[Rfam]
RNA sequence: UGUUGAUAAUAGCAAACUUAUUGAAAAAUAAGGACGCAAAGAUAUGGGUCUAAGGUAGAAAACUACUAUGAUUGCCAGUUUACCAAA
Numbered sequence: 001u002g003u004u005g006a007u008a009a010u011a012g013c014a015a016a017c018u019u020a021u022u023g024a025a026a027a028a029u030a031a032g033g034a035c036g037c038a039a040a041g042a043u044a045u046g047g048g049u050c051u052a053a054g055g056u057a058g059a060a061a062a063c064u065a066c067u068a069u070g071a072u073u074g075c076c077a078g079u080u081u082a083c084c085a086a087a
Base pairs, nucleotide, nucleotide: 012037013036017032018031019030020029021028022027040081041080042079043078045077046076047075048072049071050070055066056065057064058063
RNA: c-di-GMP-I riboswitch aptamer